[Rfam]
The record is a 182-nucleotide RNA sequence from Paraburkholderia dinghuensis, which matches "6S / SsrS RNA" in Rfam. NCBI's taxonomy places the organism under Bacteria, Pseudomonadota, Burkholderiales, Burkholderiaceae, Paraburkholderia. The base pairs follow the family's consensus structure, which is taken from published work. The literature on the family includes a 2000 paper in Cell by Wassarman and Storz, "6S RNA regulates E. coli RNA polymerase activity". About the family: E. coli 6S RNA was the first non coding RNA to be sequenced, but its function was unknown until recently. It consists of 184 nucleotides that fold into an extended hairpin structure with a large single-stranded internal bulge. The 6S RNA specifically associates with RNA polymerase holoenzyme containing the sigma70 specificity factor. This interaction represses expression from a sigma70-dependent promoter during stationary phase. 6S RNA homologs have recently been identified in most bacterial genomes.
RNA sequence: GCUUCCCUGCCUGGUUCGCCAAGGUCAUAUAUUCCUUGAACCAAUGCCAUGUGCACGGUUGCGGAAAUUUGUAGCACGGGCGUGAACGUCACUCUGUCUGAUGUACCCGAAGUGCUGCUAACUGCGACCAAUUCUGAACCCCCGGUUCAGGAUGCCGGCCUAGCGGCUAAGGCGGGGACCAA
Numbered sequence: 001g002c003u004u005c006c007c008u009g010c011c012u013g014g015u016u017c018g019c020c021a022a023g024g025u026c027a028u029a030u031a032u033u034c035c036u037u038g039a040a041c042c043a044a045u046g047c048c049a050u051g052u053g054c055a056c057g058g059u060u061g062c063g064g065a066a067a068u069u070u071g072u073a074g075c076a077c078g079g080g081c082g083u084g085a086a087c088g089u090c091a092c093u094c095u096g097u098c099u100g101a102u103g104u105a106c107c108c109g110a111a112g113u114g115c116u117g118c119u120a121a122c123u124g125c126g127a128c129c130a131a132u133u134c135u136g137a138a139c140c141c142c143c144g145g146u147u148c149a150g151g152a153u154g155c156c157g158g159c160c161u162a163g164c165g166g167c168u169a170a171g172g173c174g175g176g177g178a179c180c181a182a
Base pairs, nucleotide, nucleotide: 004178005177006176007175008174009173010172011171012169013168014167015166017165018164019163033152034151035150037149038148039147040146041145042144057129058128059127061125062124063123064122071118072117073116074115075114076113077112082106083105087103088102089101090100091099